[Rfam]
RNA sequence: ACCUUUUAUUCGCUGAAUCAAUGUUGAGCGGGGGAACCAUUUUCGAUAGACACUUGUCUAUCUUGGGGUGAAUCUUACGUUAGUAAGAGGGGAUACUCUCAGUCCCUAAUCCGACAGCUAACCUCGUAAGCGUUACAAGUAUUAUCC
Dot-bracket structure: ..........((((...(((....)))((((((....((........................))(((.....((((......))))..((((.........))))...))).........)))))).))))...............
Numbered sequence: 001a002c003c004u005u006u007u008a009u010u011c012g013c014u015g016a017a018u019c020a021a022u023g024u025u026g027a028g029c030g031g032g033g034g035a036a037c038c039a040u041u042u043u044c045g046a047u048a049g050a051c052a053c054u055u056g057u058c059u060a061u062c063u064u065g066g067g068g069u070g071a072a073u074c075u076u077a078c079g080u081u082a083g084u085a086a087g088a089g090g091g092g093a094u095a096c097u098c099u100c101a102g103u104c105c106c107u108a109a110u111c112c113g114a115c116a117g118c119u120a121a122c123c124u125c126g127u128a129a130g131c132g133u134u135a136c137a138a139g140u141a142u143u144a145u146c147c
Stems, first nucleotide, its partner, number of pairs: 011132004018027003028127006038065002066112003074087004090106004
Rfam assigns this 147-nucleotide sequence from Bacillus yapensis to the family "c-di-AMP riboswitch aptamer (ydaO/yuaA leader)". The match comes from Rfam's covariance-model search (94 bits). Rfam describes the family as follows. This family represents a conserved RNA structure found upstream of the ydaO and yuaA genes in Bacillus subtilis and related genes in other bacteria. The ydaO/yuaA element is thought to act as a genetic 'off' switch for the ydaO and yuaA genes in its native state. It is believed that the element may be triggered during osmotic shock leading to activation of ydaO, a predicted amino acid transporter gene, and members of the yuaA-yubG operon which code for KtrA and KtrB K+ transporters. The family has 106 seed sequences and 7,607 matches in Rfam 15.1.